[Rfam]
RNA sequence: AAAGACGUGGUUCGUGACCAUCCCACGAAAAAAAACUAGGGAGAG
Numbered sequence: 001a002a003a004g005a006c007g008u009g010g011u012u013c014g015u016g017a018c019c020a021u022c023c024c025a026c027g028a029a030a031a032a033a034a035a036c037u038a039g040g041g042a043g044a045g
Base pairs, nucleotide, nucleotide: 006027007026008025009024010023015038016037

The family of this 45-nucleotide RNA from Bacillus sp. FJAT-49711 is "PreQ1 (pre queuosine) riboswitch aptamer". Rfam links the family to the GO term queuosine biosynthetic process. From the family's description: This family is a bacterial riboswitch that binds to the metabolite preQ1, an intermediate in the biosynthesis of the modified nucleoside queuosine from GTP. One example of this riboswitch is located in the leader of the Bacillus subtilis ykvJKLM (queCDEF) operon which encodes four genes necessary for queuosine production. PreQ1 binding to the riboswitch aptamer is thought to induce premature transcription termination within the leader to down-regulate expression of these genes. It scores 53 bits against the family's covariance model. NCBI's taxonomy places the organism under Bacteria, Bacilli, Caryophanales, Bacillaceae, Bacillus.